[Rfam]
This 144-nucleotide RNA from Zingiber officinale belongs to the Rfam family "Small nucleolar RNA F1/F2/snoR5a". The family's RNA type in Rfam is H/ACA-box small nucleolar RNA. Rfam describes the family as follows. This family contains F1, F2 and snoR5a sequences, all of which are members of the the H/ACA class of snoRNA that guide the sites of modification of uridines to pseudouridines. Pairs were carried over by alignment from the consensus structure, which was predicted with PFOLD. A search with the family's covariance model found it, with a score of 70 bits. Gene Ontology terms of the family: nucleolus and RNA processing.
RNA sequence: UGAUGCCACGAGGUAUCUGGUGCUCUGUUAAUUUAUGGCUGAGCACCUCGUGAAAAUGGCAGAGAUGGAAGGGAGGACAGGCCUUGCGACACUGGUUGCUCAUUUUGUAAGUGUGCUUCCUGUUACUAAAUCCUGUUCACAUCU
Number, nucleotide and partner (000 for none) at each position: 001u000002g000003a000004u061005g060006c059007c058008a057009c000010g000011a000012g000013g000014u000015a000016u000017c000018u000019g047020g046021u045022g044023c043024u042025c041026u000027g039028u038029u037030a000031a036032u000033u000034u000035a000036u031037g029038g028039c027040u000041g025042a024043g023044c022045a021046c020047c019048u000049c000050g000051u000052g000053a000054a000055a000056a000057u008058g007059g006060c005061a004062g000063a000064g000065a000066u000067g000068g000069a000070a000071g000072g000073g000074a000075g000076g137077a136078c135079a134080g133081g000082c000083c000084u000085u000086g000087c000088g000089a000090c000091a123092c122093u000094g120095g119096u000097u000098g116099c115100u000101c000102a000103u000104u000105u000106u000107g000108u000109a000110a000111g000112u000113g000114u000115g099116c098117u000118u000119c095120c094121u000122g092123u091124u000125a000126c000127u000128a000129a000130a000131u000132c000133c080134u079135g078136u077137u076138c000139a000140c000141a000142u000143c000144u000